RNA sequence: CUUAGCUUGUCGGAGUGCUGCACAAACCUGGUUUGUCAGCUGAGACCGCCCCUGGGCGGAAUCCGUGGAACCUGAACAGGAUAAUACCUGCGGAGGGAAACAAGAGCGCCAACAGC
Numbered sequence: 001c002u003u004a005g006c007u008u009g010u011c012g013g014a015g016u017g018c019u020g021c022a023c024a025a026a027c028c029u030g031g032u033u034u035g036u037c038a039g040c041u042g043a044g045a046c047c048g049c050c051c052c053u054g055g056g057c058g059g060a061a062u063c064c065g066u067g068g069a070a071c072c073u074g075a076a077c078a079g080g081a082u083a084a085u086a087c088c089u090g091c092g093g094a095g096g097g098a099a100a101c102a103a104g105a106g107c108g109c110c111a112a113c114a115g116c
Stems, first nucleotide, its partner, number of pairs: 006104005011065004016059001017040004047058004071096003077090004
RNA: TPP riboswitch aptamer (THI element)
Organism: Rheinheimera mesophila